The family of this 78-nucleotide RNA sequence from Danio rerio is "mir-9/mir-79 microRNA precursor family". The family's consensus secondary structure was predicted with RNAalifold. Gene Ontology terms of the family: RISC complex and miRNA-mediated post-transcriptional gene silencing. The family has 214 seed sequences and 5,647 matches in Rfam 15.1. Rfam's curators put it in the seed alignment.

RNA sequence: UAGUUGCUAUCUUUGGUUAUCUAGCUGUAUGAGUGUUUAUCUGCCUUCAUAAAGCUAGAUAACCGAAAGUAGAAAUGU
Numbered sequence: 001u002a003g004u005u006g007c008u009a010u011c012u013u014u015g016g017u018u019a020u021c022u023a024g025c026u027g028u029a030u031g032a033g034u035g036u037u038u039a040u041c042u043g044c045c046u047u048c049a050u051a052a053a054g055c056u057a058g059a060u061a062a063c064c065g066a067a068a069g070u071a072g073a074a075a076u077g078u
Base pairs, nucleotide, nucleotide: 003076004075005074007072008071009070010069012067013066014065015064016063017062018061019060020059021058022057023056024055025054026053028051029050030049031048032047033046